Rfam assigns this 89-nucleotide RNA sequence from Methylobacillus sp. MM3 to the family "Burkholderia RNA 7 (anti-hemB)". The family has 26 seed sequences and 479 matches in Rfam 15.1. From the family's description: This RNA motif was identified by computational search in b-proteobacteria Burkholderia. The literature on the family includes a 2012 paper in BMC Genomics by Khoo et al., "Computational discovery and RT-PCR validation of novel Burkholderia conserved and Burkholderia pseudomallei unique sRNAs". Rfam links the family to the GO terms bacterial biofilm matrix and protein binding.

RNA sequence: UCUCCCGCUUCUCCUCCCUGAGCGGGCGCCUUAUCCCAAUAAGGCAUCUUGUGCCCCGGUUUUAUCCCCUUUAGCCGGGGCCUUUUUUU
Numbered sequence: 001u002c003u004c005c006c007g008c009u010u011c012u013c014c015u016c017c018c019u020g021a022g023c024g025g026g027c028g029c030c031u032u033a034u035c036c037c038a039a040u041a042a043g044g045c046a047u048c049u050u051g052u053g054c055c056c057c058g059g060u061u062u063u064a065u066c067c068c069c070u071u072u073a074g075c076c077g078g079g080g081c082c083u084u085u086u087u088u089u
Stems, first nucleotide, its partner, number of pairs: 004026006028045007054080008